RNA sequence: GAAAUAAGGGCGUAUGGGGGAUGCCUAGGCUCUUGGAGGCGAUGAAGGACGUGUUAAGCUGCGAUAAGCUUCGGGGAGGUGCACAAGACCUUUAAUCCGAAGAUUUCCGAAUGGGGCAACCCACUAGAUUGAAGAUCUAGUAUUCUAUAUAAUAGAAGGCAAACCUGCUGAACUGAAACAUCUAAGUAAGCAGAGGAAGAGAAAACAAAAGUGAUUCCGUAAGUAGUGGCGAGCGAACGCGGAUUAGCCCAAACCAGUGUUGUUGCGGCAAGACUGGGGUUGUAGGACUUCGAUAUCGAUGUUAUAAAUGAACGAGAACUGUCUGGGAAGGCGGGCCGUAGAAGGUGAGAGCCCUGUAUUGGUAAGUUUAUUUCAUUGUAGGAGUAUCCUGAGUAGGGGGGGACUGGAGAAAUCCCCUUUGAAUCUGCCGGCACCAUCCGGUAAGGCUAAAUACUACCAAGAGACCGAUAGUGAACGAGUACUGUGAAGGAAAGGUGAAAAGUACCCUGAGUAAGGGGGUGAAAAGACCCUGAAACCAUACGCUUACAAG
Number, nucleotide and partner (000 for none) at each position: 001g000002a000003a000004a000005u000006a000007a000008g545009g544010g543011c542012g541013u540014a539015u538016g537017g536018g000019g000020g000021a000022u000023g530024c495025c494026u000027a000028g466029g465030c463031u462032c461033u460034u459035g458036g457037a455038g454039g160040c159041g000042a000043u000044g000045a000046a000047g108048g107049a106050c063051g062052u061053g000054u000055u000056a000057a000058g000059c000060u000061g052062c051063g050064a000065u000066a000067a000068g000069c102070u101071u100072c099073g098074g097075g096076g000077a000078g090079g089080u088081g000082c000083a000084c000085a000086a000087g000088a080089c079090c078091u000092u000093u000094a000095a000096u075097c074098c073099g072100a071101a070102g069103a000104u000105u000106u049107c048108c047109g000110a000111a000112u000113g122114g121115g120116g000117c000118a000119a000120c115121c114122c113123a141124c140125u139126a138127g137128a136129u135130u000131g000132a000133a000134g000135a129136u128137c127138u126139a125140g124141u123142a000143u157144u156145c155146u154147a153148u152149a000150u000151a000152a148153u147154a146155g145156a144157a143158g000159g040160c039161a000162a000163a000164c195165c193166u192167g191168c190169u189170g000171a000172a000173c000174u000175g182176a181177a000178a000179c000180a000181u176182c175183u000184a000185a000186g000187u000188a000189a169190g168191c167192a166193g165194a000195g164196g000197a000198a000199g000200a000201g000202a000203a000204a000205a212206c211207a000208a000209a000210a000211g206212u205213g000214a000215u451216u243217c242218c241219g240220u239221a000222a000223g000224u000225a000226g234227u233228g000229g000230c000231g000232a000233g227234c226235g000236a000237a000238c000239g220240c219241g218242g217243a216244u000245u000246a448247g447248c446249c445250c000251a000252a000253a000254c277255c276256a275257g274258u273259g000260u271261u000262g000263u000264u000265g000266c000267g000268g000269c000270a000271a260272g000273a258274c257275u256276g255277g254278g000279g000280u000281u000282g000283u000284a390285g389286g388287a000288c384289u383290u382291c381292g000293a000294u000295a000296u000297c000298g377299a376300u375301g374302u000303u000304a371305u370306a369307a368308a367309u366310g000311a000312a000313c361314g360315a359316g000317a000318a000319c334320u333321g332322u331323c330324u000325g000326g000327g000328a000329a000330g323331g322332c321333g320334g319335g000336c000337c341338g000339u000340a000341g337342a000343a355344g354345g353346u000347g000348a000349g000350a000351g000352c000353c345354c344355u343356g000357u000358a000359u315360u314361g313362g000363u000364a000365a000366g309367u308368u307369u306370a305371u304372u000373u000374c301375a300376u299377u298378g000379u000380a000381g291382g290383a289384g288385u000386a000387u000388c286389c285390u284391g000392a000393g000394u000395a000396g420397g419398g418399g417400g416401g415402g414403a413404c000405u000406g000407g000408a000409g000410a000411a000412a000413u403414c402415c401416c400417c399418u398419u397420u396421g000422a000423a000424u000425c000426u000427g442428c441429c440430g439431g438432c000433a000434c000435c000436a000437u000438c431439c430440g429441g428442u427443a000444a000445g249446g248447c247448u246449a000450a000451a215452u000453a000454c038455u037456a000457c036458c035459a034460a033461g032462a031463g030464a000465c029466c028467g000468a000469u000470a000471g000472u000473g000474a000475a000476c000477g000478a000479g000480u000481a000482c489483u488484g000485u000486g000487a000488a483489g482490g000491a000492a000493a000494g025495g024496u000497g000498a000499a000500a000501a000502g000503u000504a000505c517506c516507c515508u514509g000510a000511g000512u000513a000514a508515g507516g506517g505518g000519g000520u000521g000522a000523a000524a000525a000526g000527a000528c000529c000530c023531u000532g000533a000534a000535a000536c017537c016538a015539u014540a013541c012542g011543c010544u009545u008546a000547c000548a000549a000550g000

This 550-nucleotide part of an RNA from Aquirufa nivalisilvae belongs to the Rfam family "Bacterial large subunit ribosomal RNA". The family's consensus secondary structure is taken from published work. A search with the family's covariance model found it, with a score of 2685 bits.